[Rfam]
Shown here is an 84-nucleotide sequence from Arachis hypogaea, a member of the family "Small nucleolar RNA snoR53Y".
RNA sequence: GUUCCCUGUGAUGCCCUUUUUCAAUGCCAUGCUAAUGCUGAUAUCAGAUGAUUAAGACAUUAAGUUUAUUUUACUGAGGGAGCC
Numbered sequence: 001g002u003u004c005c006c007u008g009u010g011a012u013g014c015c016c017u018u019u020u021u022c023a024a025u026g027c028c029a030u031g032c033u034a035a036u037g038c039u040g041a042u043a044u045c046a047g048a049u050g051a052u053u054a055a056g057a058c059a060u061u062a063a064g065u066u067u068a069u070u071u072u073a074c075u076g077a078g079g080g081a082g083c084c
Base pairs, nucleotide, nucleotide: 001083002082003081004080005079006078007077

Description:
On this family, see Brown et al., RNA 2001: "Multiple snoRNA gene clusters from Arabidopsis".